The record is a 146-nucleotide RNA sequence from Digitaria exilis, which matches "Small nucleolar RNA snoR77" in Rfam. The match comes from Rfam's covariance-model search (87 bits). For this family Rfam cites "Experimental RNomics: identification of 140 candidates for small non-messenger RNAs in the plant Arabidopsis thaliana" (Marker et al., Curr Biol, 2002). Lineage of the source: Eukaryota > Streptophyta > Liliopsida > commelinids > Digitaria.
[Rfam]
RNA sequence: AGGCAGCCCCUUUGUGGCUUUGUCCGAUGUCAAUAGCAACGGAGGUGUUGCGCUUCUCGGAGAAUAAAUCUUUUGAUCUUCAGAUCAGCUGAGGGGGGAGACCAACUUUCCUCGUUGAGGCUGGUCUAGUAAGUCUAAAGAACAUA
Numbered sequence: 001a002g003g004c005a006g007c008c009c010c011u012u013u014g015u016g017g018c019u020u021u022g023u024c025c026g027a028u029g030u031c032a033a034u035a036g037c038a039a040c041g042g043a044g045g046u047g048u049u050g051c052g053c054u055u056c057u058c059g060g061a062g063a064a065u066a067a068a069u070c071u072u073u074u075g076a077u078c079u080u081c082a083g084a085u086c087a088g089c090u091g092a093g094g095g096g097g098g099a100g101a102c103c104a105a106c107u108u109u110c111c112u113c114g115u116u117g118a119g120g121c122u123g124g125u126c127u128a129g130u131a132a133g134u135c136u137a138a139a140g141a142a143c144a145u146a
Stems, first nucleotide, its partner, number of pairs: 002049004007045002009042002012039004017034001070140003075135003082127005088121003093113007